[Rfam]
Nucleotides: 135
Base pairs, nucleotide, nucleotide: 001135002134003133004132005131006130007129008128009127010126011125012124013123014122015121016120017119018118019117020116021115022114023113024112025111026110027109028108029107030106031105032104033103034102035101036100037099038098039097044094045093046092047091048090049089
Number, partner (000 for none) and nucleotide at each position: 001135g002134g003133a004132a005131u006130a007129u008128a009127a010126g011125a012124a013123u014122c015121c016120g017119u018118c019117u020116c021115u022114u023113a024112a025111c026110u027109u028108u029107u030106a031105a032104c033103u034102a035101a036100a037099a038098a039097a040000a041000a042000g043000g044094u045093a046092a047091g048090a049089a050000c051000c052000g053000g054000u055000u056000c057000u058000u059000a060000g061000a062000u063000a064000u065000u066000a067000u068000u069000u070000a071000a072000g073000a074000g075000u076000a077000u078000u079000u080000a081000a082000g083000a084000a085000c086000c087000g088000a089049u090048u091047c092046u093045u094044a095000g096000c097039u098038u099037u100036u101035u102034u103033a104032g105031u106030u107029a108028a109027a110026a111025g112024u113023u114022a115021a116020g117019a118018g119017a120016c121015g122014g123013a124012u125011u126010c127009u128008u129007a130006u131005a132004u133003u134002c135001c
The record is a 135-nucleotide sequence from Brassica carinata, which matches "MIR9563 microRNA precursor family" in Rfam. The match comes from Rfam's covariance-model search (107 bits). The family's consensus secondary structure was predicted with RNAalifold.